This 52-nucleotide RNA sequence from Aliiroseovarius sediminilitoris belongs to the Rfam family "serC leader". A search with the family's covariance model found it, with a score of 73 bits. The literature on the family includes a 2005 paper in Genome Biol by Corbino et al., "Evidence for a second class of S-adenosylmethionine riboswitches and other regulatory RNA motifs in alpha-proteobacteria". From the family's description: This family is a putative regulatory RNA structure that is found upstream of the serC-serA operon in some alpha-proteobacteria. The final stem of the structure overlaps the ribosome binding site of the serC reading frame.
RNA sequence: CCGUGGGACACCCCUCCCCAACGAGGGGCUUAUAUCUGGAAGGGUAUCAUGA
Numbered sequence: 001c002c003g004u005g006g007g008a009c010a011c012c013c014c015u016c017c018c019c020a021a022c023g024a025g026g027g028g029c030u031u032a033u034a035u036c037u038g039g040a041a042g043g044g045u046a047u048c049a050u051g052a
Stems, first nucleotide, its partner, number of pairs: 011028006032047006
Pairs were carried over by alignment from the consensus structure. Lineage of the source: Bacteria > Pseudomonadota > Alphaproteobacteria > Paracoccaceae > Aliiroseovarius.